[Rfam]
RNA sequence: AAUUUAUCAAGAGAGGUGGAGGGACUGGCCCUUUGAAGCCUCAGCAACCGACCAAAACUAGGUAACGGUGCUAAUUCCAAGAUAGAUAAGUU
Numbered sequence: 001a002a003u004u005u006a007u008c009a010a011g012a013g014a015g016g017u018g019g020a021g022g023g024a025c026u027g028g029c030c031c032u033u034u035g036a037a038g039c040c041u042c043a044g045c046a047a048c049c050g051a052c053c054a055a056a057a058c059u060a061g062g063u064a065a066c067g068g069u070g071c072u073a074a075u076u077c078c079a080a081g082a083u084a085g086a087u088a089a090g091u092u
Stems, first nucleotide, its partner, number of pairs: 001092008013042005021031003026079003043072004048068002051063003076084001
RNA: SAM riboswitch aptamer (S box leader)
Organism: Cytobacillus kochii